[Rfam]
RNA sequence: UGGUAGAUGCACCCUGAUAACCCACUCCCUGCUAGUUUUUGCUAGUGGGGAAUUUUUUU
Numbered sequence: 001u002g003g004u005a006g007a008u009g010c011a012c013c014c015u016g017a018u019a020a021c022c023c024a025c026u027c028c029c030u031g032c033u034a035g036u037u038u039u040u041g042c043u044a045g046u047g048g049g050g051a052a053u054u055u056u057u058u059u
Base pairs, nucleotide, nucleotide: 002013003012004011026051027050028049029048030047031046032045033044034043035042036041